[Rfam]
RNA sequence: GCAGGCCUGUGUGCACAGUGUCAGUCUGUGUCUGUGGAGCAGCUGGUAUGUGUUUUUCAUGCCGGCAGUUUCAUACACACGUCCCCUGCAGCCCAAGACUAACAUGAGAUCAUAGUACUGGUCUAGUGAUGUCCCAGUGACGCUCCUACCACUGGCCAGCCUCCAAUCUCUCUGACAUAA
Numbered sequence: 001g002c003a004g005g006c007c008u009g010u011g012u013g014c015a016c017a018g019u020g021u022c023a024g025u026c027u028g029u030g031u032c033u034g035u036g037g038a039g040c041a042g043c044u045g046g047u048a049u050g051u052g053u054u055u056u057u058c059a060u061g062c063c064g065g066c067a068g069u070u071u072c073a074u075a076c077a078c079a080c081g082u083c084c085c086c087u088g089c090a091g092c093c094c095a096a097g098a099c100u101a102a103c104a105u106g107a108g109a110u111c112a113u114a115g116u117a118c119u120g121g122u123c124u125a126g127u128g129a130u131g132u133c134c135c136a137g138u139g140a141c142g143c144u145c146c147u148a149c150c151a152c153u154g155g156c157c158a159g160c161c162u163c164c165a166a167u168c169u170c171u172c173u174g175a176c177a178u179a180a
Stems, first nucleotide, its partner, number of pairs: 013089003029081003033077002035073006042066005049059002106172004118159006125153004131141003
RNA: Small nucleolar RNA SNORA23
Organism: Xenopus tropicalis